Small nucleolar RNA SNORD59: a 73-nucleotide sequence from Phoenicopterus ruber.
A reference for the family is Galardi et al. (2002), "Purified box C/D snoRNPs are able to reproduce site-specific 2'-O-methylation of target RNA in vitro", Mol Cell Biol.
Gene Ontology terms of the family: nucleolus and RNA processing.
The family is grouped with related families in Rfam's "SNORD59 clan".
The family's consensus secondary structure was predicted with ILM.
RNA sequence: CCUUCGCUGAUGUGUAACCAUUUACUUUCGUUCUUCUGAGCCUGCUGAAGCAACGCUUAUUGAUCUGAGGAGG
Dot-bracket structure: (((.(...............................................................).)))
Numbered sequence: 001c002c003u004u005c006g007c008u009g010a011u012g013u014g015u016a017a018c019c020a021u022u023u024a025c026u027u028u029c030g031u032u033c034u035u036c037u038g039a040g041c042c043u044g045c046u047g048a049a050g051c052a053a054c055g056c057u058u059a060u061u062g063a064u065c066u067g068a069g070g071a072g073g
Stems, first nucleotide, its partner, number of pairs: 001073003005069001